[Rfam]
SAM riboswitch aptamer (S box leader): a 112-nucleotide RNA sequence from Halobacillus yeomjeoni. The match comes from Rfam's covariance-model search (76 bits).
RNA sequence: CUCUUAUCCAGAGUCGGUGGAGGGACAGGCCCUUUGAAGCCCGGCAACCGUCAUGCAUAUGACAUGGUGCUAACCUGAAGCAAGGAGAUCGAUGCUCCUUGGACGAUAAGAG
Numbered sequence: 001c002u003c004u005u006a007u008c009c010a011g012a013g014u015c016g017g018u019g020g021a022g023g024g025a026c027a028g029g030c031c032c033u034u035u036g037a038a039g040c041c042c043g044g045c046a047a048c049c050g051u052c053a054u055g056c057a058u059a060u061g062a063c064a065u066g067g068u069g070c071u072a073a074c075c076u077g078a079a080g081c082a083a084g085g086a087g088a089u090c091g092a093u094g095c096u097c098c099u100u101g102g103a104c105g106a107u108a109a110g111a112g
Stems, first nucleotide, its partner, number of pairs: 001112008013042001016041003022032003026080001029076001043071004048067002050063004081101006

The base pairs follow the family's consensus structure, which is taken from published work.